[Rfam]
RNA: Hairpin ribozyme 1 from viruses-like metatranscriptomes
Nucleotides: 079
Stems, first nucleotide, its partner, number of pairs: 001037004010028006038079005050065006
Number, partner (000 for none) and nucleotide at each position: 001037u002036a003035g004034c005000g006000g007000u008000c009000c010028g011027c012026a013025u014024g015023u016000g017000u018000a019000a020000u021000c022000c023015a024014c025013a026012u027011g028010u029000a030000g031000g032000a033000a034004g035003c036002u037001a038079g039078c040077c041076a042075g043000g044000g045000a046000a047000a048000c049000a050065u051064c052063a053062a054061c055060c056000u057000u058000c059000g060055g061054g062053u063052u064051g065050a066000g067000c068000a069000c070000a071000u072000u073000a074000a075042c076041u077040g078039g079038u